The family of this 98-nucleotide RNA from Lysinibacillus sp. BF-4 is "Purine riboswitch aptamer". Its Rfam clan is "Purine riboswitches". The source organism's lineage runs through Bacteria, Bacillati, Bacilli, Caryophanales and Lysinibacillus. Rfam links the family to the GO term purine nucleobase biosynthetic process. The match comes from Rfam's covariance-model search (63 bits). Riboswitches are metabolite binding domains within certain messenger RNAs that serve as precision sensors for their corresponding targets.
RNA sequence: AUGAGGGUAAAGGUUACGCCCCAUAUAAUCUGAAGGAUUGGCUUCGGAGUAUCUACCUAGCACCUUAAUGCUAGACUAUGAGGAAAAUCAGUCUUUGA
Numbered sequence: 001a002u003g004a005g006g007g008u009a010a011a012g013g014u015u016a017c018g019c020c021c022c023a024u025a026u027a028a029u030c031u032g033a034a035g036g037a038u039u040g041g042c043u044u045c046g047g048a049g050u051a052u053c054u055a056c057c058u059a060g061c062a063c064c065u066u067a068a069u070g071c072u073a074g075a076c077u078a079u080g081a082g083g084a085a086a087a088u089c090a091g092u093c094u095u096u097g098a
Stems, first nucleotide, its partner, number of pairs: 019083002022080004029048007057074006